[Rfam]
RNA sequence: AUUAAAUCAGACCGAUUCGGAAUGGAAAU
Numbered sequence: 001a002u003u004a005a006a007u008c009a010g011a012c013c014g015a016u017u018c019g020g021a022a023u024g025g026a027a028a029u
Stems, first nucleotide, its partner, number of pairs: 012025003016021001
The family of this 29-nucleotide RNA from Methanocaldococcus jannaschii is "CRISPR RNA direct repeat element". It scores 41 bits against the family's covariance model. Rfam links the family to the GO term defense response. Lineage of the source: Archaea > Methanococci > Methanococcales > Methanocaldococcus > Methanocaldococcus jannaschii. The base pairs follow the family's consensus structure, which was predicted with WAR.